Small nucleolar RNA SNORA61: a 135-nucleotide sequence from Anser cygnoides. The family has 25 seed sequences and 881 matches in Rfam 15.1. The base pairs follow the family's consensus structure, which was predicted with PFOLD. Gene Ontology terms of the family: RNA processing and nucleolus. The match comes from Rfam's covariance-model search (81 bits). ACA61 is a member of the H/ACA class of snoRNA that guide the sites of modification of uridines to pseudouridines.

[Rfam]
RNA sequence: UCCCUCCAUAUCCCUUUCCCAUCGGAUCUGAAUACCGGUCUUGUGGUCAAAAAAGGAGGAAAAGGAAAAUUCAAACUGGUCUUGGCCUUUUUGCUGGUACAUCCCAGCUCUGAGAGGGGCCAGUUUGAUGACAGU
Numbered sequence: 001u002c003c004c005u006c007c008a009u010a011u012c013c014c015u016u017u018c019c020c021a022u023c024g025g026a027u028c029u030g031a032a033u034a035c036c037g038g039u040c041u042u043g044u045g046g047u048c049a050a051a052a053a054a055g056g057a058g059g060a061a062a063a064g065g066a067a068a069a070u071u072c073a074a075a076c077u078g079g080u081c082u083u084g085g086c087c088u089u090u091u092u093g094c095u096g097g098u099a100c101a102u103c104c105c106a107g108c109u110c111u112g113a114g115a116g117g118g119g120c121c122a123g124u125u126u127g128a129u130g131a132c133a134g135u
Stems, first nucleotide, its partner, number of pairs: 003059005019046003023043001025040004076123007